This 309-nucleotide sequence from Flavobacterium silvisoli belongs to the Rfam family "Bacterial RNase P class A". Pairs were carried over by alignment from the consensus structure, which is taken from published work.

RNA sequence: CGCGCAGACCGCCUUAUCGCUUCAACUUGUUGAAGAGGAAAGUCCGGACACCACAGAGUAGCAUAGCGGGUAACGCCCGCCCGUCGAAAGGCGAGGACAAGUGCAACAGAAAGCAGGUACAGGUAAUGCUGUAGUGAAACCAGGUAAACUCUAUGCGGUGAAAUUCCAAGUAUAUCGGCAUUUAAGGGCUACUCGUCCGUUGUCGAAGGGUAGGAAGCUUGAACCAAUGAGCAAUUGUUGGUCUAGAUAAAUGAUAAGGCCCCACCACAACAGUGGAGACAGAAUCCGGCUUACAGGUCUGCUUUUUUU
Numbered sequence: 001c002g003c004g005c006a007g008a009c010c011g012c013c014u015u016a017u018c019g020c021u022u023c024a025a026c027u028u029g030u031u032g033a034a035g036a037g038g039a040a041a042g043u044c045c046g047g048a049c050a051c052c053a054c055a056g057a058g059u060a061g062c063a064u065a066g067c068g069g070g071u072a073a074c075g076c077c078c079g080c081c082c083g084u085c086g087a088a089a090g091g092c093g094a095g096g097a098c099a100a101g102u103g104c105a106a107c108a109g110a111a112a113g114c115a116g117g118u119a120c121a122g123g124u125a126a127u128g129c130u131g132u133a134g135u136g137a138a139a140c141c142a143g144g145u146a147a148a149c150u151c152u153a154u155g156c157g158g159u160g161a162a163a164u165u166c167c168a169a170g171u172a173u174a175u176c177g178g179c180a181u182u183u184a185a186g187g188g189c190u191a192c193u194c195g196u197c198c199g200u201u202g203u204c205g206a207a208g209g210g211u212a213g214g215a216a217g218c219u220u221g222a223a224c225c226a227a228u229g230a231g232c233a234a235u236u237g238u239u240g241g242u243c244u245a246g247a248u249a250a251a252u253g254a255u256a257a258g259g260c261c262c263c264a265c266c267a268c269a270a271c272a273g274u275g276g277a278g279a280c281a282g283a284a285u286c287c288g289g290c291u292u293a294c295a296g297g298u299c300u301g302c303u304u305u306u307u308u309u
Stems, first nucleotide, its partner, number of pairs: 002304001004302007011294001012259007020035006040292003044289005049160004056194004061156005066080005081095001082093004096151002101149002103145002118133005164216004175206005186198004223242008